[Rfam]
RNA sequence: AACCAUACAACAUGCCUUCAUACGGCCCAUAUAACCAUACAACAUAUGGGCCGUAUAAAGGCAUGUUGUAUGGUU
Numbered sequence: 001a002a003c004c005a006u007a008c009a010a011c012a013u014g015c016c017u018u019c020a021u022a023c024g025g026c027c028c029a030u031a032u033a034a035c036c037a038u039a040c041a042a043c044a045u046a047u048g049g050g051c052c053g054u055a056u057a058a059a060g061g062c063a064u065g066u067u068g069u070a071u072g073g074u075u
Base pairs, nucleotide, nucleotide: 007069008068009067010066011065012064013063014062015061016060017059018058020056021055022054023053024052025051027049028048029047030046031045
The family of this 75-nucleotide RNA from Salmo salar is "mir-1 microRNA precursor family". The family's consensus secondary structure was predicted with RNAalifold. The match comes from Rfam's covariance-model search (47 bits).